The family of this 86-nucleotide RNA from Candidatus Atribacteria bacterium MT.SAG.1 is "c-di-GMP-I riboswitch aptamer". Rfam's curators write: GEMM was predicted in a large-scale screen for bacterial structured RNA regulatory elements.
RNA sequence: AGUUGAUAAAGGCAAACUAUCCGAAAGGAUAGGGCAUAAAGUUAUGGGUCUAAGACAUUUUUGGUUAUGAUCGCUAGACUGCCGGC
Numbered sequence: 001a002g003u004u005g006a007u008a009a010a011g012g013c014a015a016a017c018u019a020u021c022c023g024a025a026a027g028g029a030u031a032g033g034g035c036a037u038a039a040a041g042u043u044a045u046g047g048g049u050c051u052a053a054g055a056c057a058u059u060u061u062u063g064g065u066u067a068u069g070a071u072c073g074c075u076a077g078a079c080u081g082c083c084g085g086c
Base pairs, nucleotide, nucleotide: 012037017032018031019030020029021028022027040080041079042078043077045076046075047074048071049070050069055065056064